[Rfam]
This 151-nucleotide RNA from Actinoplanes siamensis belongs to the Rfam family "c-di-AMP riboswitch aptamer (ydaO/yuaA leader)". Rfam's curators write: This family represents a conserved RNA structure found upstream of the ydaO and yuaA genes in Bacillus subtilis and related genes in other bacteria.
RNA sequence: CGACCAACGCCGCCGAAUCACGGGUGGCGCCCCGGCGCCGCUGGAACCGGGGACCCACCGUCAUGGGGUGAAUCCGCGCCCACAGCGCGGUAGGGCCAUCUUCCGAGCCCGAACCCGUCAGCUGACCCGGUAGGCGGCACGAAGCGGAAGA
Number, nucleotide and partner (000 for none) at each position: 001c000002g000003a000004c000005c000006a000007a000008c000009g000010c000011c136012g135013c134014c133015g000016a000017a000018u045019c044020a000021c000022g000023g000024g000025u000026g000027g000028c000029g000030c000031c000032c000033c000034g000035g000036c000037g000038c000039c000040g000041c000042u000043g000044g019045a018046a131047c130048c129049g128050g127051g126052g000053a000054c000055c000056c065057a064058c000059c000060g000061u000062c000063a000064u057065g056066g116067g115068g114069u000070g000071a000072a000073u000074c090075c089076g088077c087078g000079c000080c000081c000082a000083c000084a000085g000086c000087g077088c076089g075090g074091u000092a000093g110094g109095g108096c107097c000098a000099u000100c000101u000102u000103c000104c000105g000106a000107g096108c095109c094110c093111g000112a000113a000114c068115c067116c066117g000118u000119c000120a000121g000122c000123u000124g000125a000126c051127c050128c049129g048130g047131u046132a000133g014134g013135c012136g011137g000138c000139a000140c000141g000142a000143a000144g000145c000146g000147g000148a000149a000150g000151a000

The source organism's lineage runs through Bacteria, Bacillati, Actinomycetota, Micromonosporaceae and Actinoplanes.